SAH (S-adenosyl-L-homocysteine) riboswitch aptamer: a 79-nucleotide RNA from Oxalicibacterium solurbis. For this family Rfam cites "Riboswitches that sense S-adenosylhomocysteine and activate genes involved in coenzyme recycling" (Wang et al., Mol Cell, 2008). The base pairs follow the family's consensus structure, which is taken from published work. NCBI's taxonomy places the organism under Bacteria, Pseudomonadati, Pseudomonadota, Oxalobacteraceae, Oxalicibacterium.

[Rfam]
RNA sequence: CGCAUCAAGGAGCGUUGCGACAGGUUUCCCGAUCUGCCAGGCUUGAUGUGUCAAUACUCUGCAACCGCGCUCACGUUUU
Numbered sequence: 001c002g003c004a005u006c007a008a009g010g011a012g013c014g015u016u017g018c019g020a021c022a023g024g025u026u027u028c029c030c031g032a033u034c035u036g037c038c039a040g041g042c043u044u045g046a047u048g049u050g051u052c053a054a055u056a057c058u059c060u061g062c063a064a065c066c067g068c069g070c071u072c073a074c075g076u077u078u079u
Stems, first nucleotide, its partner, number of pairs: 002049007021036006